A member of the RNA family "R2 RNA element" from Atta cephalotes, 219 nucleotides long. Taxonomically the source falls in Atta (Eukaryota, Eumetazoa, Mandibulata, Pterygota). Rfam links the family to the GO term regulation of reverse transcription. From the family's description: This family represents the 3' UTR region of the R2 retrotransposable element. This family is known to interact with the R2-encoded reverse transcriptase in a reaction known as target primed reverse transcription (TPRT). For this family Rfam cites "Secondary structure models of the 3' untranslated regions of diverse R2 RNAs" (Ruschak et al., RNA, 2004).
RNA sequence: AAAUAGAUAAAAUUAUAGAUGAGUAUCUCCCGAAAGUAAUAUAAGAAUGAUACUCGAUAGAUGCUCAUCUAGUGGAUCUUUUAAGGAAAAAAAGGGAGGGGGUUUUAGCCGUUAGGCGAGACAUAUGCAGUAUCGCGAUGCAAAUGUCUCGAGUCCGGCACUCCCCUAGAGUACGGGCUCUAGGGGGUCUUUUGAAGAUUUCCCCCUACCCUCGUAAGA
Numbered sequence: 001a002a003a004u005a006g007a008u009a010a011a012a013u014u015a016u017a018g019a020u021g022a023g024u025a026u027c028u029c030c031c032g033a034a035a036g037u038a039a040u041a042u043a044a045g046a047a048u049g050a051u052a053c054u055c056g057a058u059a060g061a062u063g064c065u066c067a068u069c070u071a072g073u074g075g076a077u078c079u080u081u082u083a084a085g086g087a088a089a090a091a092a093a094g095g096g097a098g099g100g101g102g103u104u105u106u107a108g109c110c111g112u113u114a115g116g117c118g119a120g121a122c123a124u125a126u127g128c129a130g131u132a133u134c135g136c137g138a139u140g141c142a143a144a145u146g147u148c149u150c151g152a153g154u155c156c157g158g159c160a161c162u163c164c165c166c167u168a169g170a171g172u173a174c175g176g177g178c179u180c181u182a183g184g185g186g187g188u189c190u191u192u193u194g195a196a197g198a199u200u201u202c203c204c205c206c207u208a209c210c211c212u213c214g215u216a217a218g219a
Stems, first nucleotide, its partner, number of pairs: 069218002072215002093212004098206003108159004117151006123139002126137003161187005
Dot-bracket structure: ....................................................................((.((...................((((.(((.......((((.....((((((((.(((......)))))......))))))....)))).(((((.................)))))................)))..)))).)).)).